Source information: Shown here is a 132-nucleotide RNA sequence from Corynebacterium testudinoris, a member of the family "atpB RNA". The source organism's lineage runs through Bacteria, Actinomycetes, Mycobacteriales, Corynebacteriaceae and Corynebacterium.
RNA sequence: CUGGCGCCACCUCGCUGAUGUGCGACGGAGUCCGUGGUGGUGUCAGAAGAGUUUUUCAGACGUCCAUCGCACCGUGCUGGAAGUGACAAUCCACACGGCCCGAACACGGGAGAGAACGCUGAGCGUUACAAC
Numbered sequence: 001c002u003g004g005c006g007c008c009a010c011c012u013c014g015c016u017g018a019u020g021u022g023c024g025a026c027g028g029a030g031u032c033c034g035u036g037g038u039g040g041u042g043u044c045a046g047a048a049g050a051g052u053u054u055u056u057c058a059g060a061c062g063u064c065c066a067u068c069g070c071a072c073c074g075u076g077c078u079g080g081a082a083g084u085g086a087c088a089a090u091c092c093a094c095a096c097g098g099c100c101c102g103a104a105c106a107c108g109g110g111a112g113a114g115a116a117c118g119c120u121g122a123g124c125g126u127u128a129c130a131a132c
Stems, first nucleotide, its partner, number of pairs: 001046011072098005078093004